[Rfam]
RNA sequence: CUGACACGCGCGGGAGAGACCUGCCGAUUCGCUUUGCGGGUCGAAAGGCGCCGAAGGAGCAACCGCCCCGGAAUCUCUCAGGCAAAAGGACCGCGCGGGUCGA
Numbered sequence: 001c002u003g004a005c006a007c008g009c010g011c012g013g014g015a016g017a018g019a020c021c022u023g024c025c026g027a028u029u030c031g032c033u034u035u036g037c038g039g040g041u042c043g044a045a046a047g048g049c050g051c052c053g054a055a056g057g058a059g060c061a062a063c064c065g066c067c068c069c070g071g072a073a074u075c076u077c078u079c080a081g082g083c084a085a086a087a088g089g090a091c092c093g094c095g096c097g098g099g100u101c102g103a
Stems, first nucleotide, its partner, number of pairs: 007097007020048003050083003053079002057077003063071002
RNA: Glycine riboswitch aptamer
Organism: Novosphingobium malaysiense